This 58-nucleotide RNA sequence from Aerosakkonema funiforme belongs to the Rfam family "Nitrogen stress-induced RNA 1". The match comes from Rfam's covariance-model search (48 bits). Rfam classes the family as a small RNA. Rfam 15.1 lists 962 matches to the family in 163 species. A reference for the family is Ionescu et al. (2010), "Heterocyst-specific transcription of NsiR1, a non-coding RNA encoded in a tandem array of direct repeats in cyanobacteria", J Mol Biol.

RNA sequence: AGGUAGAUGCACCCUGAUAAUUUAACCCCCCAACUCGCAAAGAUGGGGGGAUUUUUGU
Numbered sequence: 001a002g003g004u005a006g007a008u009g010c011a012c013c014c015u016g017a018u019a020a021u022u023u024a025a026c027c028c029c030c031c032a033a034c035u036c037g038c039a040a041a042g043a044u045g046g047g048g049g050g051a052u053u054u055u056u057g058u
Stems, first nucleotide, its partner, number of pairs: 002013003026050007034042002